[Rfam]
RNA: c-di-GMP-I riboswitch aptamer
RNA sequence: UGGCCAUAAUAGAAAACUUAUUGAAAGAUAAGGAUUCAAAAACAGGAAUAUAAGGUGCAUAAAUCACUAUAAUGGCUAGUUUGUCAAA
Number, nucleotide and partner (000 for none) at each position: 001u000002g000003g000004c000005c000006a000007u000008a000009a000010u000011a000012g037013a036014a000015a000016a000017c032018u031019u030020a029021u028022u027023g000024a000025a000026a000027g022028a021029u020030a019031a018032g017033g000034a000035u000036u013037c012038a000039a000040a082041a081042a080043c079044a000045g000046g077047a000048a073049u072050a000051u000052a000053a000054g000055g067056u066057g065058c000059a000060u000061a000062a000063a000064u000065c057066a056067c055068u000069a000070u000071a000072a049073u048074g000075g000076c000077u046078a000079g043080u042081u041082u040083g000084u000085c000086a000087a000088a000